[Rfam]
RNA sequence: GCCGGUUCUCAGGGCGGGGUGCAAUUCCCCACCGGCGGUAAGCGCGAAAGCGUAAGCCCGCGAGCGCCUUUGCAACCAAGUCAUUGGAGCAAAGGGUCAGCAGAUCUGGUGCGAUUCCAGAGCCGACGGUCAUAGUCCGGAUGGAAGAGAACGACA
Numbered sequence: 001g002c003c004g005g006u007u008c009u010c011a012g013g014g015c016g017g018g019g020u021g022c023a024a025u026u027c028c029c030c031a032c033c034g035g036c037g038g039u040a041a042g043c044g045c046g047a048a049a050g051c052g053u054a055a056g057c058c059c060g061c062g063a064g065c066g067c068c069u070u071u072g073c074a075a076c077c078a079a080g081u082c083a084u085u086g087g088a089g090c091a092a093a094g095g096g097u098c099a100g101c102a103g104a105u106c107u108g109g110u111g112c113g114a115u116u117c118c119a120g121a122g123c124c125g126a127c128g129g130u131c132a133u134a135g136u137c138c139g140g141a142u143g144g145a146a147g148a149g150a151a152c153g154a155c156a
Base pairs, nucleotide, nucleotide: 005152006151007150008149009148010147017029018028019027031136032135033125034124035061036060037059038058056123057122064101065100105121106120107119108118109117127139128138129137